The record is a 72-nucleotide RNA sequence from Medicago truncatula, which matches "MIR2629 microRNA precursor family" in Rfam.
[Rfam]
RNA sequence: UCCUUGGUAGAACCUCGGCAGUUAACUGCAGCCGGUUCCUUCAAAAUUCGGCAGUUAACUGCCGAAGGAUAU
Numbered sequence: 001u002c003c004u005u006g007g008u009a010g011a012a013c014c015u016c017g018g019c020a021g022u023u024a025a026c027u028g029c030a031g032c033c034g035g036u037u038c039c040u041u042c043a044a045a046a047u048u049c050g051g052c053a054g055u056u057a058a059c060u061g062c063c064g065a066a067g068g069a070u071a072u
Stems, first nucleotide, its partner, number of pairs: 013067001015065015
Its family is annotated with RISC complex and miRNA-mediated post-transcriptional gene silencing in the Gene Ontology. It scores 66 bits against the family's covariance model.